[Rfam]
RNA: Small nucleolar RNA Z159/U59
Organism: Dioscorea zingiberensis
RNA sequence: GUUUCCGAUGAUGAUCACUAUAAUACUUUCGUUCUUCCGAGGGUGAUUGUUUGCCCAUGCGGAGAAAUUAUUGGAGACCUGAACUGAGGAAAC
Numbered sequence: 001g002u003u004u005c006c007g008a009u010g011a012u013g014a015u016c017a018c019u020a021u022a023a024u025a026c027u028u029u030c031g032u033u034c035u036u037c038c039g040a041g042g043g044u045g046a047u048u049g050u051u052u053g054c055c056c057a058u059g060c061g062g063a064g065a066a067a068u069u070a071u072u073g074g075a076g077a078c079c080u081g082a083a084c085u086g087a088g089g090a091a092a093c
Stems, first nucleotide, its partner, number of pairs: 003091004